About this RNA
The record is a 109-nucleotide RNA sequence from Desulfotomaculum nigrificans, which matches "Glycine riboswitch aptamer" in Rfam. It scores 70 bits against the family's covariance model.
[Rfam]
RNA sequence: AUGAUGGUGGCGGGAGAGAUCCCUCUAUGGGGCGCCGAAGGAGCAACCUUAUUUUCUCAGGCUGGAGAAAAUUUGGUAAACUCUCAGGCAAAAGGACUGUCACCGGACG
Numbered sequence: 001a002u003g004a005u006g007g008u009g010g011c012g013g014g015a016g017a018g019a020u021c022c023c024u025c026u027a028u029g030g031g032g033c034g035c036c037g038a039a040g041g042a043g044c045a046a047c048c049u050u051a052u053u054u055u056c057u058c059a060g061g062c063u064g065g066a067g068a069a070a071a072u073u074u075g076g077u078a079a080a081c082u083c084u085c086a087g088g089c090a091a092a093a094g095g096a097c098u099g100u101c102a103c104c105g106g107a108c109g
Base pairs, nucleotide, nucleotide: 006104007103008102009101010100011099012098013097020032021031022030023029034089035088036087037085038084041083042082043081047076048075